[Rfam]
Nucleotides: 186
Stems, first nucleotide, its partner, number of pairs: 003080004008075003015069004019064004024060002026054003030050001032048003092113003095109003099105001121181009131171002137165003141161004147156003
Number, partner (000 for none) and nucleotide at each position: 001000a002000c003080g004079g005078u006077c007000u008075g009074g010073g011000g012000a013000a014000a015069g016068g017067u018066u019064c020063c021062u022061g023000u024060g025059u026054g027053g028052u029000c030050g031000c032048a033047c034046c035000u036000g037000c038000c039000c040000u041000c042000g043000g044000u045000c046034g047033g048032u049000g050030c051000a052028g053027c054026c055000u056000c057000g058000u059025a060024c061022c062021a063020g064019g065000c066018a067017g068016c069015c070000c071000c072000a073010c074009c075008u076000u077006g078005a079004c080003c081000u082000a083000a084000a085000g086000u087000a088000a089000a090000u091000u092113c093112c094111u095109g096108g097107g098000a099105g100000a101000a102000g103000u104000g105099u106000c107097u108096u109095c110000u111094g112093g113092g114000g115000u116000u117000g118000a119000a120000a121181u122180u123179u124178g125177c126176a127175g128174u129173a130000a131171c132170a133000g134000g135000u136000g137165u138164g139163a140000a141161c142160a143159u144158u145000c146000u147156a148155g149154c150000a151000g152000c153000a154149g155148u156147u157000u158144g159143a160142u161141g162000a163139u164138c165137a166000u167000g168000u169000a170132u171131g172000a173129u174128a175127c176126u177125g178124c179123a180122a181121a182000c183000a184000g185000g186000a
Rfam assigns this 186-nucleotide sequence from Jaculus jaculus to the family "Small Cajal body specific RNA 16". Lineage of the source: Eukaryota > Eumetazoa > Deuterostomia > Rodentia > Jaculus. scaRNAs are a specific class of small nuclear RNAs which localise to the Cajal bodies and guide the modification of RNA polymerase II transcribed spliceosomal RNAs U1, U2, U4, U5 and U12. ACA47 belongs to the H/ACA box class of guide RNAs as it has the predicted hairpin-hinge-hairpin-tail structure, the conserved H/ACA-box motifs and is found associated with GAR1. ACA47 is predicted to guide the pseudouridylation of residue U5 of the U1 spliceosomal snRNA. Rfam classes the family as a small Cajal body RNA. For this family Rfam cites "Cajal body-specific small nuclear RNAs: a novel class of 2'-O-methylation and pseudouridylation guide RNAs" (Darzacq et al., EMBO J, 2002). The family's consensus secondary structure was predicted with RNAfold.